Background:
This 302-nucleotide sequence from Podarcis muralis belongs to the Rfam family "Metazoan signal recognition particle RNA".
RNA sequence: GCCGGGCAUGGUGUCUCCUGCCUGUGAUCCCAGCUCCUUGGGAGGCUGAGGCUGGAGGAUUGCUUGAGUCCAGGAGUUCUAGGCUGCGGCGGGCUACGUGGAGCAGGUGUCCUCGCCAAGGUCAGCAUCAACAUGGGGGCUCUCUGGGGAGCCAGGGGCUACCAGGUUGCCUAAGGAGGGGCGAACCGGCCCAGGCUGGAGACAGAGCAGGCCAAAGCUCCCGUGCUGAGCAGUGGUGGGAUUGCACCUCAGAGUAGCACCUGCAGUGUUAGCCUGGGCAAGAAAGCAAGACCCAGCCUCUC
Numbered sequence: 001g002c003c004g005g006g007c008a009u010g011g012u013g014u015c016u017c018c019u020g021c022c023u024g025u026g027a028u029c030c031c032a033g034c035u036c037c038u039u040g041g042g043a044g045g046c047u048g049a050g051g052c053u054g055g056a057g058g059a060u061u062g063c064u065u066g067a068g069u070c071c072a073g074g075a076g077u078u079c080u081a082g083g084c085u086g087c088g089g090c091g092g093g094c095u096a097c098g099u100g101g102a103g104c105a106g107g108u109g110u111c112c113u114c115g116c117c118a119a120g121g122u123c124a125g126c127a128u129c130a131a132c133a134u135g136g137g138g139g140c141u142c143u144c145u146g147g148g149g150a151g152c153c154a155g156g157g158g159c160u161a162c163c164a165g166g167u168u169g170c171c172u173a174a175g176g177a178g179g180g181g182c183g184a185a186c187c188g189g190c191c192c193a194g195g196c197u198g199g200a201g202a203c204a205g206a207g208c209a210g211g212c213c214a215a216a217g218c219u220c221c222c223g224u225g226c227u228g229a230g231c232a233g234u235g236g237u238g239g240g241a242u243u244g245c246a247c248c249u250c251a252g253a254g255u256a257g258c259a260c261c262u263g264c265a266g267u268g269u270u271a272g273c274c275u276g277g278g279c280a281a282g283a284a285a286g287c288a289a290g291a292c293c294c295a296g297c298c299u300c301u302c
Stems, first nucleotide, its partner, number of pairs: 001046003004023005010017002028043003048300008060289006068279007079272004083267007093258005099252001105249006111240002114238005120231001122229007129169004134164003138160006145154003170176002178221005188213004196205003

Taxonomically the source falls in Podarcis (Eukaryota, Sauria, Unidentata, Lacertidae).
The family's RNA type in Rfam is non-coding RNA gene.